[Rfam]
RNA sequence: UGGCGCCCAACGGUGAGGCAUGGAUAAGGGGGAAUUCGUGAGGGAAGAGGCAUUUAAUGGUUCCACCGACCAAAGCAGAAGUCAGUUCAAGAAGGAUCGCUGCGGGAGCCUGCCACGCCAUUCUUAAAGGUACAGUAACGCCUAACUAUGGGACAAGAAUUAAGUAAGCAUAAAGUUUUUGUUAAGCAAUUAAAAGAAGCUUUAAAGACACGGGGAGUAAAGGUUAAGAGUAAUGAUCUUUUUAAGUUUUUUGACCUUAUUAAGGACACCUGUCUGU
Numbered sequence: 001u002g003g004c005g006c007c008c009a010a011c012g013g014u015g016a017g018g019c020a021u022g023g024a025u026a027a028g029g030g031g032g033a034a035u036u037c038g039u040g041a042g043g044g045a046a047g048a049g050g051c052a053u054u055u056a057a058u059g060g061u062u063c064c065a066c067c068g069a070c071c072a073a074a075g076c077a078g079a080a081g082u083c084a085g086u087u088c089a090a091g092a093a094g095g096a097u098c099g100c101u102g103c104g105g106g107a108g109c110c111u112g113c114c115a116c117g118c119c120a121u122u123c124u125u126a127a128a129g130g131u132a133c134a135g136u137a138a139c140g141c142c143u144a145a146c147u148a149u150g151g152g153a154c155a156a157g158a159a160u161u162a163a164g165u166a167a168g169c170a171u172a173a174a175g176u177u178u179u180u181g182u183u184a185a186g187c188a189a190u191u192a193a194a195a196g197a198a199g200c201u202u203u204a205a206a207g208a209c210a211c212g213g214g215g216a217g218u219a220a221a222g223g224u225u226a227a228g229a230g231u232a233a234u235g236a237u238c239u240u241u242u243u244a245a246g247u248u249u250u251u252u253g254a255c256c257u258u259a260u261u262a263a264g265g266a267c268a269c270c271u272g273u274c275u276g277u
Stems, first nucleotide, its partner, number of pairs: 006031003014026002036048002039045001095123001096121002101117002104114002136156001141152004161204003164200002211253008221239006262277001264275004
RNA: Mason-Pfizer monkey virus packaging signal
Organism: Sciurus vulgaris